[Rfam]
RNA sequence: CGCACGCGGGUAAUGCGGUGCGCCGGGGAGAAAUCCCGGUGUUUCGCUCCGGUGUCCGGGAUGUCCCGGAUAAUCCCCCCGCGGAGGCAUAACCGGAAAAGAGGUACGAC
Numbered sequence: 001c002g003c004a005c006g007c008g009g010g011u012a013a014u015g016c017g018g019u020g021c022g023c024c025g026g027g028g029a030g031a032a033a034u035c036c037c038g039g040u041g042u043u044u045c046g047c048u049c050c051g052g053u054g055u056c057c058g059g060g061a062u063g064u065c066c067c068g069g070a071u072a073a074u075c076c077c078c079c080c081g082c083g084g085a086g087g088c089a090u091a092a093c094c095g096g097a098a099a100a101g102a103g104g105u106a107c108g109a110c
Stems, first nucleotide, its partner, number of pairs: 001086001003084001005083006015047002024038002027036001054071006

This 110-nucleotide sequence from Limibacillus halophilus belongs to the Rfam family "rpsB sRNA". The family's RNA type in Rfam is small RNA. Pairs were carried over by alignment from the consensus structure, which is taken from published work. Lineage of the source: Bacteria > Pseudomonadota > Rhodospirillales > Rhodovibrionaceae > Limibacillus. A reference for the family is Meyer et al. (2009), "Identification of candidate structured RNAs in the marine organism 'Candidatus Pelagibacter ubique'", BMC Genomics. Rfam 15.1 lists 245 matches to the family in 245 species.